[Rfam]
Source information: A member of the RNA family "RNA Staph. aureus E (RoxS)" from Bacillus benzoevorans, 114 nucleotides long.

RNA sequence: GUGAAGUUAAUCACAAGCAAACAUAUACCCCUUUGUUUGACCGUGAAAAAUUUCUCCCAUCCCCUUUGUUCGUAUUUAAUAGAAAAAAAGACUCUGCGCUGCAGGGUCUUUUUU
Numbered sequence: 001g002u003g004a005a006g007u008u009a010a011u012c013a014c015a016a017g018c019a020a021a022c023a024u025a026u027a028c029c030c031c032u033u034u035g036u037u038u039g040a041c042c043g044u045g046a047a048a049a050a051u052u053u054c055u056c057c058c059a060u061c062c063c064c065u066u067u068g069u070u071c072g073u074a075u076u077u078a079a080u081a082g083a084a085a086a087a088a089a090g091a092c093u094c095u096g097c098g099c100u101g102c103a104g105g106g107u108c109u110u111u112u113u114u
Stems, first nucleotide, its partner, number of pairs: 003054006011046004018039006070083001074080001087111011
Dot-bracket structure: ..((((((..((((...((((((..........))))))...))))..))))))...............(...(.....)..)...(((((((((((...)))))))))))...
The source organism's lineage runs through Bacteria, Bacillati, Caryophanales, Bacillaceae and Bacillus. The family's RNA type in Rfam is small RNA. It was shown to be regulated by the presence of nitric oxide (NO). In Bacillus subtilis it controls expression of genes with functions related to oxidative stress and oxidation-reduction reactions and it was renamed RoxS (for related to oxidative stress). A reference for the family is Geissmann et al. (2009), "A search for small noncoding RNAs in Staphylococcus aureus reveals a conserved sequence motif for regulation", Nucleic Acids Res.